The record is a 108-nucleotide RNA sequence from Thermanaeromonas toyohensis, which matches "Glycine riboswitch aptamer" in Rfam. A search with the family's covariance model found it, with a score of 66 bits. Lineage of the source: Bacteria > Bacillati > Neomoorellales > Neomoorellaceae > Thermanaeromonas toyohensis. Rfam links the family to the GO term glycine biosynthetic process.
RNA sequence: AGGAAAGGAGUAGAAGAGACUCCCGGUAAAAGGGGGCGCCGAAGGAGCAAGCCCGGCUGGUGGUGGCAGCCGGGGGAAACUCUCAGGCAAAAGUACUACUCCCGGACG
Numbered sequence: 001a002g003g004a005a006a007g008g009a010g011u012a013g014a015a016g017a018g019a020c021u022c023c024c025g026g027u028a029a030a031a032g033g034g035g036g037c038g039c040c041g042a043a044g045g046a047g048c049a050a051g052c053c054c055g056g057c058u059g060g061u062g063g064u065g066g067c068a069g070c071c072g073g074g075g076g077a078a079a080c081u082c083u084c085a086g087g088c089a090a091a092a093g094u095a096c097u098a099c100u101c102c103c104g105g106a107c108g
Stems, first nucleotide, its partner, number of pairs: 007102007020036004038088003041084002045082003052074008